This 207-nucleotide RNA from Streptomyces argyrophylli belongs to the Rfam family "Streptomyces RNA 1601".

Nucleotides: 207
Stems, first nucleotide, its partner, number of pairs: 004091006012027002028083005034060001037057004041052002062077006093130003097127001101123008140200006146192003152188003155184005161178005
Number, partner (000 for none) and nucleotide at each position: 001000g002000a003000c004091g005090a006089c007088c008087g009086g010000c011000u012027g013026g014000a015000c016000c017000u018000g019000a020000u021000u022000g023000u024000g025000u026013c027012c028083g029082g030081c031080c032079c033000a034060c035000a036000a037057g038056u039055g040054g041052a042051g043000g044000c045000u046000c047000c048000g049000a050000u051042c052041u053000c054040c055039c056038a057037c058000c059000c060034g061000a062077c063076c064075g065074u066073c067072c068000c069000c070000c071000g072067g073066g074065a075064c076063g077062g078000c079032g080031g081030g082029u083028c084000a085000c086009c087008c088007g089006g090005u091004c092000a093130g094129g095128c096000g097127g098000c099000c100000g101123c102122c103121a104120u105119c106118g107117u108116u109000c110000c111000g112000u113000a114000c115000g116108g117107a118106c119105g120104a121103u122102g123101g124000a125000g126000u127097c128095g129094c130093c131000c132000g133000a134000a135000a136000g137000c138000g139000c140200g141199c142198c143197c144196c145195g146192c147191g148190g149000c150000a151000u152188c153187g154186c155184g156183g157182c158181g159180g160000u161178g162177c163176u164175c165174c166000g167000g168000u169000c170000g171000u172000u173000u174165g175164g176163a177162g178161c179000c180159c181158c182157g183156c184155c185000u186154g187153u188152g189000a190148u191147c192146g193000u194000c195145c196144g197143g198142g199141g200140c201000a202000u203000u204000u205000u206000u207000u
The match comes from Rfam's covariance-model search (180 bits). The organism belongs to Streptomyces, within Bacteria. Rfam describes the family as follows. Identified by deep sequencing of transcriptome at the end of exponential growth phase. The literature on the family includes a 2011 paper in RNA Biol by Vockenhuber et al., "Deep sequencing-based identification of small non-coding RNAs in Streptomyces coelicolor".